[Rfam]
RNA sequence: AACACCCACGUGGGAGAGACCGCCCGGCACAUGUCAGGGCGGCGCCGAAGGGGCAAAUCCUCCCCGGAACCUCUCAGGCAAAAGGACCUCGUGGGCAGG
Numbered sequence: 001a002a003c004a005c006c007c008a009c010g011u012g013g014g015a016g017a018g019a020c021c022g023c024c025c026g027g028c029a030c031a032u033g034u035c036a037g038g039g040c041g042g043c044g045c046c047g048a049a050g051g052g053g054c055a056a057a058u059c060c061u062c063c064c065c066g067g068a069a070c071c072u073c074u075c076a077g078g079c080a081a082a083a084g085g086a087c088c089u090c091g092u093g094g095g096c097a098g099g
Stems, first nucleotide, its partner, number of pairs: 006094005012088002020042006044079003047075002051073003058066001